[Rfam]
RNA: Small nucleolar RNA SNORD23
RNA sequence: UGCCCAGUGAUGAUCCCCAUCCUUGCUCCCCGUGCCCUCAGGGGCUGUGGGCGAUAUCAUGGCUGACCCCGGGUCCGGCUGGUUGGGCUGAUGCCUGGGGGCUGAGGGCA
Numbered sequence: 001u002g003c004c005c006a007g008u009g010a011u012g013a014u015c016c017c018c019a020u021c022c023u024u025g026c027u028c029c030c031c032g033u034g035c036c037c038u039c040a041g042g043g044g045c046u047g048u049g050g051g052c053g054a055u056a057u058c059a060u061g062g063c064u065g066a067c068c069c070c071g072g073g074u075c076c077g078g079c080u081g082g083u084u085g086g087g088c089u090g091a092u093g094c095c096u097g098g099g100g101g102c103u104g105a106g107g108g109c110a
Stems, first nucleotide, its partner, number of pairs: 001110005